Fluoride riboswitch aptamer (crcB RNA motif): a 62-nucleotide sequence from Sandaracinobacter neustonicus. The match comes from Rfam's covariance-model search (47 bits).
RNA sequence: UUUCUCAAAGGGAAUGGUGUCUCCCUUAUAACCGCGCUGGUGCUGAUGACGCCUGCUUUCGC
Numbered sequence: 001u002u003u004c005u006c007a008a009a010g011g012g013a014a015u016g017g018u019g020u021c022u023c024c025c026u027u028a029u030a031a032c033c034g035c036g037c038u039g040g041u042g043c044u045g046a047u048g049a050c051g052c053c054u055g056c057u058u059u060c061g062c
Stems, first nucleotide, its partner, number of pairs: 010025004016053006034043003

The organism belongs to Sandaracinobacter, within Bacteria.